HIV Ribosomal frameshift signal: a 50-nucleotide RNA from Lentivirus humimdef1.
RNA sequence: UUUUAGAGAAAAUCUGGCCUUCCCACAAGGGAAGGCCAGGGAAUUUCGUU
Numbered sequence: 001u002u003u004u005a006g007a008g009a010a011a012a013u014c015u016g017g018c019c020u021u022c023c024c025a026c027a028a029g030g031g032a033a034g035g036c037c038a039g040g041g042a043a044u045u046u047c048g049u050u
Stems, first nucleotide, its partner, number of pairs: 006050002010046003013040011
About this RNA:
NCBI's taxonomy places the organism under Viruses, Pararnavirae, Revtraviricetes, Ortervirales, Lentivirus humimdef1. On this family, see Biswas et al., J Virol 2004: "The human immunodeficiency virus type 1 ribosomal frameshifting site is an invariant sequence determinant and an important target for antiviral therapy". About the family: This family represents the HIV Ribosomal frameshift signal. It is one of the family's seed sequences.